The record is a 90-nucleotide RNA from Peromyscus maniculatus, which matches "Small nucleolar RNA SNORD35" in Rfam. Rfam 15.1 lists 1,842 matches to the family in 634 species. About the family: U35 is a C/D box snoRNA located in intron 6 of ribosomal protein L13A and intron 3 of ribosomal protein S11 in humans and at homologous positions in mouse and chicken ribosomal protein genes. U35 guides the methylation of 2'-O-ribose sites in 28S rRNA. By type it is a C/D-box small nucleolar RNA. Taxonomically the source falls in Peromyscus maniculatus (Eukaryota, Eumetazoa, Vertebrata, Eutheria).
[Rfam]
RNA sequence: GGCAGAUGAUGGUUUUCUUUCUCACGAUGGUCUUCGGAUGCCGCUGGUGGGCAGUGCCGAUAAUGCCACGGGCUCAGCUGAUGCCAGGAG
Numbered sequence: 001g002g003c004a005g006a007u008g009a010u011g012g013u014u015u016u017c018u019u020u021c022u023c024a025c026g027a028u029g030g031u032c033u034u035c036g037g038a039u040g041c042c043g044c045u046g047g048u049g050g051g052c053a054g055u056g057c058c059g060a061u062a063a064u065g066c067c068a069c070g071g072g073c074u075c076a077g078c079u080g081a082u083g084c085c086a087g088g089a090g
Stems, first nucleotide, its partner, number of pairs: 001085004